This 128-nucleotide RNA from Strongylus vulgaris belongs to the Rfam family "Nematode snoRNA ceN39". It scores 54 bits against the family's covariance model. It is annotated as an H/ACA-box small nucleolar RNA. The base pairs follow the family's consensus structure, which was predicted with RNAalifold.

RNA sequence: UUGGCGGAUAGGAACCAGUCGGUGUCUAUGCAUGGAUUGGGCCGAAAACCGCCAAAAUAAAAUGUACACAUUAAAGGUCGUAUGUGUCUUUCUUUGAGGCAUGUAUAUCACCAUUGUGCGCGACAGAA
Numbered sequence: 001u002u003g004g005c006g007g008a009u010a011g012g013a014a015c016c017a018g019u020c021g022g023u024g025u026c027u028a029u030g031c032a033u034g035g036a037u038u039g040g041g042c043c044g045a046a047a048a049c050c051g052c053c054a055a056a057a058u059a060a061a062a063u064g065u066a067c068a069c070a071u072u073a074a075a076g077g078u079c080g081u082a083u084g085u086g087u088c089u090u091u092c093u094u095u096g097a098g099g100c101a102u103g104u105a106u107a108u109c110a111c112c113a114u115u116g117u118g119c120g121c122g123a124c125a126g127a128a
Stems, first nucleotide, its partner, number of pairs: 003053005011043002015040006022033004065120001067118003070114002076112003080106002083103005089098002